[Rfam]
RNA sequence: GAGUUUGUUGGCAAAGUGCUCGGUCGGGGCAAACCGCCAGAUCGUAAACACGCCGUAAAUACCUCCUUGUAGGCUCGAUCCGCGCCAUCCUUGGCGCGGACGGUUU
Numbered sequence: 001g002a003g004u005u006u007g008u009u010g011g012c013a014a015a016g017u018g019c020u021c022g023g024u025c026g027g028g029g030c031a032a033a034c035c036g037c038c039a040g041a042u043c044g045u046a047a048a049c050a051c052g053c054c055g056u057a058a059a060u061a062c063c064u065c066c067u068u069g070u071a072g073g074c075u076c077g078a079u080c081c082g083c084g085c086c087a088u089c090c091u092u093g094g095c096g097c098g099g100a101c102g103g104u105u106u
Stems, first nucleotide, its partner, number of pairs: 013106003017102002020027002029076001040065002044062003050056002080099008